[Rfam]
RNA sequence: UGGCGAUUUAAGUGCCGUAACUUAAGGGCGGUAGCGUG
Numbered sequence: 001u002g003g004c005g006a007u008u009u010a011a012g013u014g015c016c017g018u019a020a021c022u023u024a025a026g027g028g029c030g031g032u033a034g035c036g037u038g
Stems, first nucleotide, its partner, number of pairs: 008025005